[Rfam]
Description: 6S / SsrS RNA: a 182-nucleotide RNA from Clostridium tetanomorphum. From the family's description: E. coli 6S RNA was the first non coding RNA to be sequenced, but its function was unknown until recently. The family's consensus secondary structure is taken from published work.

RNA sequence: CAUUUCCUACUGUGUUUGUAUAAAUAGAUUCAUAUUGAGCCAACACAUUUUUAAAGGGAAUCGGACUCUUCUUGUGGAAUUGAUGCUUAGAUUUUAUUUAAGAACAAGAAGCAAGAAGGAGAUGCCCACCUGCUAAGGGCAGGUUCAAACAUAAUCUAUUUAAGCGGCACGGUGGGAUUUUA
Numbered sequence: 001c002a003u004u005u006c007c008u009a010c011u012g013u014g015u016u017u018g019u020a021u022a023a024a025u026a027g028a029u030u031c032a033u034a035u036u037g038a039g040c041c042a043a044c045a046c047a048u049u050u051u052u053a054a055a056g057g058g059a060a061u062c063g064g065a066c067u068c069u070u071c072u073u074g075u076g077g078a079a080u081u082g083a084u085g086c087u088u089a090g091a092u093u094u095u096a097u098u099u100a101a102g103a104a105c106a107a108g109a110a111g112c113a114a115g116a117a118g119g120a121g122a123u124g125c126c127c128a129c130c131u132g133c134u135a136a137g138g139g140c141a142g143g144u145u146c147a148a149a150c151a152u153a154a155u156c157u158a159u160u161u162a163a164g165c166g167g168c169a170c171g172g173u174g175g176g177a178u179u180u181u182a
Base pairs, nucleotide, nucleotide: 002180005177006176007175008174009173010172011171012170013169014168015167017166018165019164032152033151035149036147037146038145039144040143041142056127057126058125060123061122062121069117070116071115072114073113074112075111081106082105086102087101088100089099090098
Dot-bracket structure: .(..(((((((((((.(((............((.(((((((..............(((.(((......(((((((.....((...(((((.......)))))..))....)))))))...))).)))..............)))))).).))...........))))))))))))))..)..